This 33-nucleotide RNA belongs to the Rfam family "DUF805b RNA". The family's RNA type in Rfam is cis-regulatory element. Rfam's curators put it in the seed alignment.
[Rfam]
RNA sequence: AAAGCGAAAGCCGAAAAGCUUUUAGAGUAGGCA
Numbered sequence: 001a002a003a004g005c006g007a008a009a010g011c012c013g014a015a016a017a018g019c020u021u022u023u024a025g026a027g028u029a030g031g032c033a
Base pairs, nucleotide, nucleotide: 002021003020004019005018010032011031012030